[Rfam]
RNA sequence: GCUUGAUGAUGAUUCCUUUUAAACUAAGCAAAAUGUAGUUGGUCCUUCAUUUGCACAGUUGAUGUAAACCGGUUUCAAGACGGGACUGAAAGCAGC
Numbered sequence: 001g002c003u004u005g006a007u008g009a010u011g012a013u014u015c016c017u018u019u020u021a022a023a024c025u026a027a028g029c030a031a032a033a034u035g036u037a038g039u040u041g042g043u044c045c046u047u048c049a050u051u052u053g054c055a056c057a058g059u060u061g062a063u064g065u066a067a068a069c070c071g072g073u074u075u076c077a078a079g080a081c082g083g084g085a086c087u088g089a090a091a092g093c094a095g096c
Stems, first nucleotide, its partner, number of pairs: 001093004
RNA: Small nucleolar RNA SNORD21
Organism: Bagarius yarrelli